[Rfam]
RNA sequence: UCGUUCUUGUGUUAUUUGCUGAAUUUCUAUUCUCAUUCAGUGAUUGUCAAACAGAACGUAUAACGAACUCCAAGGCAGACCUACUCCACAAUGCAGAGUCUAAUUUAACCAAGACUUCUUCAUUACAAAUCACUGGCUACAUCA
Numbered sequence: 001u002c003g004u005u006c007u008u009g010u011g012u013u014a015u016u017u018g019c020u021g022a023a024u025u026u027c028u029a030u031u032c033u034c035a036u037u038c039a040g041u042g043a044u045u046g047u048c049a050a051a052c053a054g055a056a057c058g059u060a061u062a063a064c065g066a067a068c069u070c071c072a073a074g075g076c077a078g079a080c081c082u083a084c085u086c087c088a089c090a091a092u093g094c095a096g097a098g099u100c101u102a103a104u105u106u107a108a109c110c111a112a113g114a115c116u117u118c119u120u121c122a123u124u125a126c127a128a129a130u131c132a133c134u135g136g137c138u139a140c141a142u143c144a
Stems, first nucleotide, its partner, number of pairs: 002058006010049002016043007090124004097116004
Source information: Rfam assigns this 144-nucleotide sequence from Drosophila busckii to the family "Small nucleolar RNA psi18S-1377". Rfam links the family to the GO terms nucleolus and RNA processing. The family's consensus secondary structure was predicted with RNAalifold. By type it is an H/ACA-box small nucleolar RNA. psi18S-1377 is a member of the H/ACA class of snoRNA. This family is responsible for guiding the modification of uridines 1377 and 1279 to pseudouridine in Drosophila 18S rRNA.